[Rfam]
RNA sequence: CUGGGAUACGGGGACAUGUACCCCGAAACGUGGCCGGGAAUGCUGGUGGGGGCCCUGUGCGCCUUGGCGGGCGUGCUGACCAUCGCCAUGCCCGUGCCCGUCAUCGUGAACACU
Number, nucleotide and partner (000 for none) at each position: 001c000002u000003g000004g111005g000006a000007u108008a107009c106010g105011g104012g000013g102014a101015c100016a000017u000018g097019u096020a095021c094022c000023c000024c000025g000026a000027a000028a000029c000030g000031u000032g000033g000034c000035c000036g000037g077038g076039a000040a074041u000042g000043c000044u000045g000046g000047u000048g000049g063050g062051g000052g000053c000054c000055c000056u000057g000058u000059g000060c000061g000062c050063c049064u000065u000066g000067g000068c000069g000070g000071g000072c000073g000074u040075g000076c038077u037078g000079a000080c000081c000082a000083u000084c000085g000086c000087c000088a000089u000090g000091c000092c000093c000094g021095u020096g019097c018098c000099c000100g015101u014102c013103a000104u011105c010106g009107u008108g007109a000110a000111c004112a000113c000114u000

Shown here is a 114-nucleotide sequence from Salarias fasciatus, a member of the family "Potassium channel RNA editing signal". Taxonomically the source falls in Salarias (Eukaryota, Deuterostomia, Actinopteri, Neoteleostei). A reference for the family is Bhalla et al. (2004), "Control of human potassium channel inactivation by editing of a small mRNA hairpin", Nat Struct Mol Biol. It scores 90 bits against the family's covariance model. It is annotated as a cis-regulatory element. The family's consensus secondary structure is taken from published work.